[Rfam]
RNA sequence: AGUCAUAUGCUUGUCUCAAAGAUUAAGCCAUGCAUGUCUAAGUACAUGCCGUAUUAAGGCGAAACCGCGAAUGGCUCAUUAAAUCAGUUACGGUUCCUUAGAUGUUGACUGUCUACAUGGAUAACUGUGGUAAUUCUAGAGCUAAUACAUGCACAAAAGCUUUGACCUUUACGGAAAGAGCGCAUUUAUUAGAACAAGACCAAUGGGGUUCUUUACGGAACUCCUCAAUGUGGUGACUCUGGAUAACUAUUGCUAAUCACAUGGCCAAGUGCCGGUGAUGAAUCUUUCAAGUGUCUGCCUUAUCAACUGUCGAUGGUAGGUUAUGUGCCUACCAUGGUUGUAACGGGUAACGGGGAAUCAGGGUUCGAUUCCGGAGAGGGAGCCUGAGAAACGGCUACCACAUCCAAGGAAGGCAGCAGGCACGCAAAUUACCCAAUUCCAGAACGGAGAGGUAGUGACGAAAAAUAACAAUACGGGACUCUUAUGAGGCCCCGUAAUUGGAAUGAGAACAAUCUAAAUCCUUUAACGAGGAUCUAUUGGAGGGCAAGUCUGGUGCCAGCAGCCGCGGUAAUUCCAGCUCCAAUAGCGUAUAUUAAAGUU
Numbered sequence: 001a002g003u004c005a006u007a008u009g010c011u012u013g014u015c016u017c018a019a020a021g022a023u024u025a026a027g028c029c030a031u032g033c034a035u036g037u038c039u040a041a042g043u044a045c046a047u048g049c050c051g052u053a054u055u056a057a058g059g060c061g062a063a064a065c066c067g068c069g070a071a072u073g074g075c076u077c078a079u080u081a082a083a084u085c086a087g088u089u090a091c092g093g094u095u096c097c098u099u100a101g102a103u104g105u106u107g108a109c110u111g112u113c114u115a116c117a118u119g120g121a122u123a124a125c126u127g128u129g130g131u132a133a134u135u136c137u138a139g140a141g142c143u144a145a146u147a148c149a150u151g152c153a154c155a156a157a158a159g160c161u162u163u164g165a166c167c168u169u170u171a172c173g174g175a176a177a178g179a180g181c182g183c184a185u186u187u188a189u190u191a192g193a194a195c196a197a198g199a200c201c202a203a204u205g206g207g208g209u210u211c212u213u214u215a216c217g218g219a220a221c222u223c224c225u226c227a228a229u230g231u232g233g234u235g236a237c238u239c240u241g242g243a244u245a246a247c248u249a250u251u252g253c254u255a256a257u258c259a260c261a262u263g264g265c266c267a268a269g270u271g272c273c274g275g276u277g278a279u280g281a282a283u284c285u286u287u288c289a290a291g292u293g294u295c296u297g298c299c300u301u302a303u304c305a306a307c308u309g310u311c312g313a314u315g316g317u318a319g320g321u322u323a324u325g326u327g328c329c330u331a332c333c334a335u336g337g338u339u340g341u342a343a344c345g346g347g348u349a350a351c352g353g354g355g356a357a358u359c360a361g362g363g364u365u366c367g368a369u370u371c372c373g374g375a376g377a378g379g380g381a382g383c384c385u386g387a388g389a390a391a392c393g394g395c396u397a398c399c400a401c402a403u404c405c406a407a408g409g410a411a412g413g414c415a416g417c418a419g420g421c422a423c424g425c426a427a428a429u430u431a432c433c434c435a436a437u438u439c440c441a442g443a444a445c446g447g448a449g450a451g452g453u454a455g456u457g458a459c460g461a462a463a464a465a466u467a468a469c470a471a472u473a474c475g476g477g478a479c480u481c482u483u484a485u486g487a488g489g490c491c492c493c494g495u496a497a498u499u500g501g502a503a504u505g506a507g508a509a510c511a512a513u514c515u516a517a518a519u520c521c522u523u524u525a526a527c528g529a530g531g532a533u534c535u536a537u538u539g540g541a542g543g544g545c546a547a548g549u550c551u552g553g554u555g556c557c558a559g560c561a562g563c564c565g566c567g568g569u570a571a572u573u574c575c576a577g578c579u580c581c582a583a584u585a586g587c588g589u590a591u592a593u594u595a596a597a598g599u600u
Stems, first nucleotide, its partner, number of pairs: 001594003005591007014463001016461002020456001021423001027421003031418003036068002042065002048060002075376003085297003090292002094290002100285004116151004125141002128138003159181005166174002186246005199234004217224002257278004262274004299347003306338003313335008351373004355366004378399002381396003401412001403410002429454001431453003437449004469500003472496006479488003507527001509524001511523002537583006550577004559566002
Overview: The record is a 600-nucleotide part of an RNA from Oppiella nova, which matches "Eukaryotic small subunit ribosomal RNA" in Rfam. It scores 1758 bits against the family's covariance model. Its Rfam clan is "SSU clan". Taxonomically the source falls in Oppiella (Eukaryota, Bilateria, Arthropoda, Chelicerata). Pairs were carried over by alignment from the consensus structure, which is taken from published work.